[Rfam]
RNA sequence: GGGUCCGAGGCGCAUAGCCUCGGAGGCAGUGCGGGUAGUCGGGCCGCUAUCC
Numbered sequence: 001g002g003g004u005c006c007g008a009g010g011c012g013c014a015u016a017g018c019c020u021c022g023g024a025g026g027c028a029g030u031g032c033g034g035g036u037a038g039u040c041g042g043g044c045c046g047c048u049a050u051c052c
Base pairs, nucleotide, nucleotide: 005023006022007021008020009019010018011017033052034051035050036049037048038047039046
A member of the RNA family "nhaA-I RNA" from Coriobacteriaceae bacterium EMTCatB1, 52 nucleotides long.
The organism belongs to Coriobacteriaceae, within Bacteria.
Rfam's curators write: Acidobacteria, Alphaproteobacteria, Betaproteobacteria and Gammaproteobacteria, Verrucomicrobia, cand. division NC10.
The base pairs follow the family's consensus structure, which is taken from published work.